[Rfam]
RNA sequence: AGACGUGAGGGUGAUCUGGUUGCGACAUCUGUCACCCCAUUGAUCGCCAGGGUUGACUCGGCUGAUCUGGCUGGCUAGGCGGGUGUCCCCUUCCUCCCUCACCGCUCCAUGUGCGUCCCUCCCGAAGCUGCGCGCUCAGUCGAAGAGGACGACCAUCCCCGAUAGAGGAGGACCGGUCUCCGGUCAAGGGUAUACGAGUAGCUGCGCUCCCCUGCUAGAACCUCCAAAUAGGCUCUCAAGAAUCCAUCUGCCAAUGCCUGUGCCAAUCUACCUGCCUGUGGAGUGCAGGCGGGAGACAUGGGUUCAAUUCCUG
Numbered sequence: 001a002g003a004c005g006u007g008a009g010g011g012u013g014a015u016c017u018g019g020u021u022g023c024g025a026c027a028u029c030u031g032u033c034a035c036c037c038c039a040u041u042g043a044u045c046g047c048c049a050g051g052g053u054u055g056a057c058u059c060g061g062c063u064g065a066u067c068u069g070g071c072u073g074g075c076u077a078g079g080c081g082g083g084u085g086u087c088c089c090c091u092u093c094c095u096c097c098c099u100c101a102c103c104g105c106u107c108c109a110u111g112u113g114c115g116u117c118c119c120u121c122c123c124g125a126a127g128c129u130g131c132g133c134g135c136u137c138a139g140u141c142g143a144a145g146a147g148g149a150c151g152a153c154c155a156u157c158c159c160c161g162a163u164a165g166a167g168g169a170g171g172a173c174c175g176g177u178c179u180c181c182g183g184u185c186a187a188g189g190g191u192a193u194a195c196g197a198g199u200a201g202c203u204g205c206g207c208u209c210c211c212c213u214g215c216u217a218g219a220a221c222c223u224c225c226a227a228a229u230a231g232g233c234u235c236u237c238a239a240g241a242a243u244c245c246a247u248c249u250g251c252c253a254a255u256g257c258c259u260g261u262g263c264c265a266a267u268c269u270a271c272c273u274g275c276c277u278g279u280g281g282a283g284u285g286c287a288g289g290c291g292g293g294a295g296a297c298a299u300g301g302g303u304u305c306a307a308u309u310c311c312u313g
Stems, first nucleotide, its partner, number of pairs: 002107002005102007013093002018090002024087010035074002037070003042067004046062003116171002118168004122139001124137002127135002140162003147158003202300001207295002211293005222283004228279005

Shown here is a 313-nucleotide sequence from Cervus elaphus, a member of the family "7SK RNA". Rfam classes the family as a non-coding RNA gene. The family has 45 seed sequences and 49,373 matches in Rfam 15.1. A reference for the family is Wassarman and Steitz (1991), "Structural analyses of the 7SK ribonucleoprotein (RNP), the most abundant human small RNP of unknown function", Mol Cell Biol. It scores 263 bits against the family's covariance model.